Record summary: FMN riboswitch aptamer (RFN element): a 109-nucleotide RNA from Frisingicoccus caecimuris.
RNA sequence: AUCUUUCUUCGGAAAUGAGAAUUUCUCUACUGGCGGUAAAGCCCGCGAGCAAAAGCCAAUCCGGUGUAAUUCCGGAGCCAACAGUUGGUCUGGACGGGAGAAGAGGAUG
Number, nucleotide and partner (000 for none) at each position: 001a000002u000003c000004u106005u105006u104007c103008u102009u101010c100011g000012g000013a000014a000015a000016u000017g027018a026019g025020a000021a000022u000023u000024u000025c019026u018027c017028u000029a089030c088031u080032g079033g046034c045035g044036g043037u000038a000039a000040a000041g078042c077043c036044c035045g034046c033047g000048a000049g056050c055051a000052a000053a000054a000055g050056c049057c000058a000059a000060u076061c075062c074063g073064g072065u000066g000067u000068a000069a000070u000071u000072c064073c063074g062075g061076a060077g042078c041079c032080a031081a000082c092083a091084g090085u000086u000087g000088g030089u029090c084091u083092g082093g000094a000095c000096g000097g000098g000099a000100g010101a009102a008103g007104a006105g005106g004107a000108u000109g000